[Rfam]
Nucleotides: 074
Base pairs, nucleotide, nucleotide: 005052006051007050008049009048017046018045019044020043022035023034024033025032026031
Number, partner (000 for none) and nucleotide at each position: 001000u002000c003000a004000c005052a006051c007050a008049g009048c010000a011000u012000u013000g014000u015000a016000c017046c018045c019044a020043g021000a022035g023034u024033c025032u026031g027000u028000c029000c030000c031026c032025a033024g034023a035022c036000a037000u038000u039000g040000c041000a042000c043020c044019u045018g046017g047000c048009g049008c050007u051006g052005u053000u054000a055000g056000g057000c058000c059000g060000g061000a062000a063000u064000u065000a066000a067000a068000g069000u070000u071000g072000a073000c074000g

Overview:
U1A polyadenylation inhibition element (PIE): a 74-nucleotide RNA sequence from Sorex araneus. The sequence is in the family's curated seed alignment. The base pairs follow the family's consensus structure, which is taken from published work. Rfam classes the family as a cis-regulatory element. On this family, see Varani et al., Nat Struct Biol 2000: "The NMR structure of the 38 kDa U1A protein - PIE RNA complex reveals the basis of cooperativity in regulation of polyadenylation by human U1A protein". From the family's description: This family represents the U1A polyadenylation inhibition element (PIE). PIE is a regulatory RNA which is responsible for the regulation of the length of the polyA tail of the U1A pre-mRNA. The PIE is located in the U1A mRNA 3' UTR. PIE adopts a U-shaped structure, with binding sites for a single U1A protein at each bend and when complexed with the two proteins it blocks activity of poly(A) polymerase (PAP), and inhibits its activity.